[Rfam]
Rfam assigns this 178-nucleotide part of an RNA from Daldinia sp. EC12 to the family "Ascomycota telomerase RNA".
For this family Rfam cites "The common ancestral core of vertebrate and fungal telomerase RNAs" (Qi et al., Nucleic Acids Res, 2013).
Gene Ontology terms of the family: telomere maintenance via telomerase, telomerase activity and telomerase catalytic core complex.
Its Rfam clan is "Telomerase clan".
The organism belongs to Daldinia, within Eukaryota.
RNA sequence: GAUUUACUUAUCAACUGCUCUCGUGGCAGCUUAUAGGUAUCCCUCACCUCUACCAAAAAAAAAUGGAUUGCGGAGAGAUGACAGUGCGGCUUUUAUGGAUGUUUUUUGGUCGUACGGAAAUGCCCCCCUUGUUGCUCGUCAAAGCUCGCCGGGGAGGAAUCAAAAACUAGUCCAUGUU
Numbered sequence: 001g002a003u004u005u006a007c008u009u010a011u012c013a014a015c016u017g018c019u020c021u022c023g024u025g026g027c028a029g030c031u032u033a034u035a036g037g038u039a040u041c042c043c044u045c046a047c048c049u050c051u052a053c054c055a056a057a058a059a060a061a062a063a064u065g066g067a068u069u070g071c072g073g074a075g076a077g078a079u080g081a082c083a084g085u086g087c088g089g090c091u092u093u094u095a096u097g098g099a100u101g102u103u104u105u106u107u108g109g110u111c112g113u114a115c116g117g118a119a120a121u122g123c124c125c126c127c128c129u130u131g132u133u134g135c136u137c138g139u140c141a142a143a144g145c146u147c148g149c150c151g152g153g154g155a156g157g158a159a160u161c162a163a164a165a166a167c168u169a170g171u172c173c174a175u176g177u178u
Base pairs, nucleotide, nucleotide: 007037008036009035010034011033013031015029016028017027018026020025042080043077044076045075047073048070052068053066054065098172099171100170101167102166104165105164106163107162108161109160123157124156125154126153127152128151134149135148